This 300-nucleotide RNA from Rhodnius prolixus belongs to the Rfam family "Metazoan signal recognition particle RNA".

RNA sequence: ACUGGGGGUUGUGGUGUGCCCCUGUAAUCCAACUACUUGGAGGUCGGGUUCUGAGGAUGAUUUGCGGUCGGGAUCAACUGUGUCUGGGUGCUACUACGUUGACUGGAUGUCCGCACUAAGCUGGCCAUCAACAUGGUGUAUUCUGGGGAGCCAAUUUACACCAGGUUAGCUAAGGAGGGGCGAAUCGGGCCAGGGGGGAAACCCAGCAGCCAAAAGUCCCCGUGGUUUGCAGUAGUGGGAUCGCGUCCAUGAGUGGGGCCCCAGUUACAGCCCAACCAAUAUAAUUAGACCAGAAUCUUU
Number, nucleotide and partner (000 for none) at each position: 001a044002c043003u042004g023005g022006g021007g020008g019009u018010u000011g000012u000013g000014g000015u000016g000017u000018g009019c008020c007021c006022c005023u004024g000025u000026a000027a000028u041029c040030c039031a000032a000033c000034u000035a000036c000037u000038u000039g030040g029041a028042g003043g002044u001045c000046g298047g297048g296049u295050u294051c293052u292053g291054a000055g000056g000057a000058u287059g286060a285061u284062u283063u000064g000065c000066g277067g276068u275069c000070g273071g272072g271073a000074u000075c000076a000077a000078c270079u269080g268081u267082g266083u000084c264085u263086g000087g262088g261089u000090g259091c258092u000093a000094c256095u255096a254097c253098g000099u251100u000101g000102a000103c000104u249105g248106g247107a246108u245109g244110u243111c239112c238113g000114c237115a236116c235117u234118a233119a000120g230121c229122u000123g227124g226125c225126c224127a223128u222129c000130a167131a166132c165133a000134u163135g162136g161137u160138g159139u158140a157141u000142u000143c000144u153145g152146g151147g000148g000149a000150g000151c146152c145153a144154a000155u000156u000157u140158a139159c138160a137161c136162c135163a134164g000165g132166u131167u130168a000169g000170c174171u000172a000173a000174g170175g000176a000177g220178g219179g218180g217181c216182g000183a000184a000185u000186c000187g000188g211189g210190c209191c000192a000193g000194g000195g204196g203197g202198g000199a000200a000201a000202c197203c196204c195205a000206g000207c000208a000209g190210c189211c188212a000213a000214a000215a000216g181217u180218c179219c178220c177221c000222g128223u127224g126225g125226u124227u123228u000229g121230c120231a000232g000233u118234a117235g116236u115237g114238g112239g111240a000241u000242c000243g110244c109245g108246u107247c106248c105249a104250u000251g099252a000253g097254u096255g095256g094257g000258g091259c090260c000261c088262c087263a085264g084265u000266u082267a081268c080269a079270g078271c072272c071273c070274a000275a068276c067277c066278a000279a000280u000281a000282u000283a062284a061285u060286u059287a058288g000289a000290c000291c053292a052293g051294a050295a049296u048297c047298u046299u000300u000
Overview: Pairs were carried over by alignment from the consensus structure, which is taken from published work.